[Rfam]
RNA sequence: AGGUCUGAUAUUCUAUCUUUCUAUGAUGCUGUAAAACUUGGAGCAUAUUCUGUCUGACCUGG
Numbered sequence: 001a002g003g004u005c006u007g008a009u010a011u012u013c014u015a016u017c018u019u020u021c022u023a024u025g026a027u028g029c030u031g032u033a034a035a036a037c038u039u040g041g042a043g044c045a046u047a048u049u050c051u052g053u054c055u056g057a058c059c060u061g062g
Stems, first nucleotide, its partner, number of pairs: 001060005007054004014047003018043004
The record is a 62-nucleotide sequence from Monodelphis domestica, which matches "mir-7385 microRNA precursor family" in Rfam. The family's consensus secondary structure was predicted with RNAalifold. The family has 6 seed sequences and 10 matches in Rfam 15.1. The match comes from Rfam's covariance-model search (70 bits).